[Rfam]
RNA sequence: CCAGCUGCCGCGGGAGAGAUCGUGCCGACAUCCCGGACACGACGCCGAAGGCGCAAUUCCGCCCGGAAUCGCUCAGGCAAAAGGACUGCGGGGCAUGU
Numbered sequence: 001c002c003a004g005c006u007g008c009c010g011c012g013g014g015a016g017a018g019a020u021c022g023u024g025c026c027g028a029c030a031u032c033c034c035g036g037a038c039a040c041g042a043c044g045c046c047g048a049a050g051g052c053g054c055a056a057u058u059c060c061g062c063c064c065g066g067a068a069u070c071g072c073u074c075a076g077g078c079a080a081a082a083g084g085a086c087u088g089c090g091g092g093g094c095a096u097g098u
Stems, first nucleotide, its partner, number of pairs: 006093001008091006020042004044078003047074002051072003
The family of this 98-nucleotide sequence from Thiolapillus brandeum is "Glycine riboswitch aptamer". Lineage of the source: Bacteria > Gammaproteobacteria > Chromatiales > Sedimenticolaceae > Thiolapillus.